[Rfam]
RNA sequence: GAUAGAAACAUAAUUGGGUGCAGCGUUGAUGAAAUCUCCUUAACUUCGCCUCCAUGAAGAUCAUCGGAAGAGGAAAUUAAGGACUUCAUCAACGCUGCACUCAAUGACGUUUCUU
Numbered sequence: 001g002a003u004a005g006a007a008a009c010a011u012a013a014u015u016g017g018g019u020g021c022a023g024c025g026u027u028g029a030u031g032a033a034a035u036c037u038c039c040u041u042a043a044c045u046u047c048g049c050c051u052c053c054a055u056g057a058a059g060a061u062c063a064u065c066g067g068a069a070g071a072g073g074a075a076a077u078u079a080a081g082g083a084c085u086u087c088a089u090c091a092a093c094g095c096u097g098c099a100c101u102c103a104a105u106g107a108c109g110u111u112u113c114u115u
Stems, first nucleotide, its partner, number of pairs: 006112004011107001013105016030088003
This 115-nucleotide RNA from Rosa chinensis belongs to the Rfam family "MIR397 microRNA precursor family". The family has 7 seed sequences and 496 matches in Rfam 15.1. The source organism's lineage runs through Eukaryota, Streptophytina, Tracheophyta, Magnoliopsida and Rosa. Gene Ontology terms of the family: miRNA-mediated post-transcriptional gene silencing and RISC complex.